[Rfam]
RNA sequence: UGACCCCGUACGGGAGAGUGUCCGCGCAGCCAGCCCGGGCCGCCGAAGGAGCAAUUCCUCCCCAGCGAACCUCUCAGGCGCAUGGACCGUACGGGUGAG
Number, nucleotide and partner (000 for none) at each position: 001u000002g000003a000004c000005c000006c094007c093008g092009u091010a090011c089012g088013g087014g000015a000016g000017a000018g000019u000020g040021u039022c038023c037024g000025c000026g000027c000028a000029g000030c000031c000032a000033g000034c000035c000036c000037g023038g022039g021040c020041c000042g079043c078044c077045g075046a074047a000048g000049g073050a072051g071052c000053a000054a000055u000056u000057c065058c000059u000060c000061c000062c000063c000064a000065g057066c000067g000068a000069a000070c000071c051072u050073c049074u046075c045076a000077g044078g043079c042080g000081c000082a000083u000084g000085g000086a000087c013088c012089g011090u010091a009092c008093g007094g006095g000096u000097g000098a000099g000